[Rfam]
RNA sequence: GAAUGAACAACGCUGAGUCCUGCAGAAGCAGGAACGGGGGAACCAACGAACGGCUUGCUUGCAUGUAUUGCCGUUCAUGGGGUGAAUCGCUUGUCUAUACAAGCGUAGGGCAACUCUCAAGGCCCGAAUCCGACAGCUAACCUCGUAAGCGAACUCGAGAGAGGCA
Numbered sequence: 001g002a003a004u005g006a007a008c009a010a011c012g013c014u015g016a017g018u019c020c021u022g023c024a025g026a027a028g029c030a031g032g033a034a035c036g037g038g039g040g041a042a043c044c045a046a047c048g049a050a051c052g053g054c055u056u057g058c059u060u061g062c063a064u065g066u067a068u069u070g071c072c073g074u075u076c077a078u079g080g081g082g083u084g085a086a087u088c089g090c091u092u093g094u095c096u097a098u099a100c101a102a103g104c105g106u107a108g109g110g111c112a113a114c115u116c117u118c119a120a121g122g123c124c125c126g127a128a129u130c131c132g133a134c135a136g137c138u139a140a141c142c143u144c145g146u147a148a149g150c151g152a153a154c155u156c157g158a159g160a161g162a163g164g165c166a
Stems, first nucleotide, its partner, number of pairs: 011151004018033006034146006044079002080131003088105004108125004